[Rfam]
A member of the RNA family "dinG RNA", 94 nucleotides long.

RNA sequence: AAUGGUACUCCCUCAAGAGAACUGAGGCCGAACAGCGCGGAGGCGCGAUUCGGGAAAGCGUCGUGCGGUUUGGGAUAGAACCGUGGGAGCUUUC
Numbered sequence: 001a002a003u004g005g006u007a008c009u010c011c012c013u014c015a016a017g018a019g020a021a022c023u024g025a026g027g028c029c030g031a032a033c034a035g036c037g038c039g040g041a042g043g044c045g046c047g048a049u050u051c052g053g054g055a056a057a058g059c060g061u062c063g064u065g066c067g068g069u070u071u072g073g074g075a076u077a078g079a080a081c082c083g084u085g086g087g088a089g090c091u092u093u094c
Base pairs, nucleotide, nucleotide: 011027012026013025014024015023028053029052030051031050032049054094055093056092057091058090059089062087066083067082068081069080070079
It is one of the family's seed sequences.
By type it is a small RNA.